[Rfam]
RNA sequence: GGAGACUUGCGGAAGGCUGUCCCUAGUACGAGAGGACCGGGACGGACGAACCUCUGGUGUGCCAGUUGUCCCGCCAGGGGCACGGCUGGUUGGCUACGUUCGGAAGGGAUAACCGCUGAAGGCAUCUAAGCGGGAAGCUCGUUCCAAGAUGAGGUCUCCCACCACCACAGCGUGGGUAAGGCCCCCCACAGACCAUGGGGUUGAUAGGCCGGAGAUGGACGCCCCGCAAGGGGUGCAGUCGACCGGUACUAAUAGGCCGAGG
Number, nucleotide and partner (000 for none) at each position: 001g159002g158003a157004g156005a155006c154007u153008u152009g000010c000011g145012g144013a143014a142015g000016g000017c045018u044019g043020u042021c041022c040023c039024u000025a000026g000027u000028a000029c000030g000031a000032g000033a000034g000035g000036a000037c000038c000039g023040g022041g021042a020043c019044g018045g017046a000047c102048g101049a100050a099051c098052c000053u000054c000055u096056g095057g094058u000059g000060u000061g000062c089063c088064a087065g086066u085067u082068g081069u080070c079071c078072c077073g000074c000075c000076a000077g072078g071079g070080g069081c068082a067083c000084g000085g066086c065087u064088g063089g062090u000091u000092g000093g000094c057095u056096a055097c000098g051099u050100u049101c048102g047103g000104a000105a000106g140107g139108g138109a000110u000111a000112a000113c133114c132115g131116c130117u129118g000119a000120a000121g000122g000123c000124a000125u000126c000127u000128a000129a117130g116131c115132g114133g113134g000135a000136a000137g000138c108139u107140c106141g000142u014143u013144c012145c011146a000147a000148g000149a000150u000151g000152a008153g007154g006155u005156c004157u003158c002159c001160c000161a000162c175163c174164a173165c000166c000167a000168c000169a000170g000171c000172g000173u164174g163175g162176g000177u260178a000179a000180g258181g257182c256183c255184c200185c199186c198187c197188a196189c000190a000191g000192a000193c000194c000195a000196u188197g187198g186199g185200g184201u000202u000203g000204a000205u251206a250207g249208g247209c246210c245211g244212g243213a000214g240215a239216u000217g000218g000219a000220c000221g234222c233223c232224c231225c230226g000227c000228a000229a000230g225231g224232g223233g222234u221235g000236c000237a000238g000239u215240c214241g000242a000243c212244c211245g210246g209247u208248a000249c207250u206251a205252a000253u000254a000255g183256g182257c181258c180259g000260a177261g000262g000

Rfam assigns this 262-nucleotide part of an RNA from Pseudonocardia asaccharolytica to the family "Bacterial large subunit ribosomal RNA". Rfam links the family to the GO terms ribosome and structural constituent of ribosome. Lineage of the source: Bacteria > Actinomycetes > Pseudonocardiaceae > Pseudonocardia > Pseudonocardia asaccharolytica. Pairs were carried over by alignment from the consensus structure, which is taken from published work.